[Rfam]
Nucleotides: 088
Base pairs, nucleotide, nucleotide: 012037013036017032018031019030020029021028022027041081042080043079045078046077047076048073049072050071055067056066057065058064
Number, partner (000 for none) and nucleotide at each position: 001000a002000u003000a004000c005000g006000a007000u008000a009000a010000u011000g012037g013036c014000a015000a016000a017032c018031c019030u020029g021028c022027c023000g024000a025000a026000a027022g028021g029020c030019a031018g032017g033000g034000a035000c036013g037012c038000a039000a040000a041081g042080c043079u044000u045078c046077a047076g048073g049072c050071c051000u052000a053000c054000g055067g056066a057065a058064u059000c060000u061000a062000u063000g064058a065057u066056u067055c068000u069000a070000u071050g072049g073048c074000g075000g076047c077046u078045g079043g080042g081041u082000c083000g084000c085000c086000g087000a088000a

The family of this 88-nucleotide sequence from Paenibacillus arenilitoris is "c-di-GMP-I riboswitch aptamer". Pairs were carried over by alignment from the consensus structure, which is taken from published work.